[Rfam]
RNA sequence: UCGCACCUGUUGACAGAUAAGGUUCCUCUGGUUCUAGUCGUGGAACCUUCACUUAAGUGUGCAAAAAGCAAGAGCUGUUCCACAGCAGCCGCCAGACAACCGUAGAGAUGGAUCCACAGAUGAUGUGUUUGCAGUACUUAUCAUCUACUAAUUCUGUCUCACACUU
Numbered sequence: 001u002c003g004c005a006c007c008u009g010u011u012g013a014c015a016g017a018u019a020a021g022g023u024u025c026c027u028c029u030g031g032u033u034c035u036a037g038u039c040g041u042g043g044a045a046c047c048u049u050c051a052c053u054u055a056a057g058u059g060u061g062c063a064a065a066a067a068g069c070a071a072g073a074g075c076u077g078u079u080c081c082a083c084a085g086c087a088g089c090c091g092c093c094a095g096a097c098a099a100c101c102g103u104a105g106a107g108a109u110g111g112a113u114c115c116a117c118a119g120a121u122g123a124u125g126u127g128u129u130u131g132c133a134g135u136a137c138u139u140a141u142c143a144u145c146u147a148c149u150a151a152u153u154c155u156g157u158c159u160c161a162c163a164c165u166u
Base pairs, nucleotide, nucleotide: 003062004061005060006059012054016052019049020048021047022046023045024044025043026042028040030038105160106159107158108157109156110155111154112153122142123141124140125139127137
The family of this 166-nucleotide RNA from Ensete ventricosum is "small nucleolar RNA snoR143".
For this family Rfam cites "Mining small RNA sequencing data: a new approach to identify small nucleolar RNAs in Arabidopsis" (Chen and Wu, Nucleic Acids Res, 2009).
Rfam 15.1 lists 660 matches to the family in 212 species.
Gene Ontology terms of the family: nucleolus and RNA processing.
Pairs were carried over by alignment from the consensus structure, which was predicted with RNAalifold.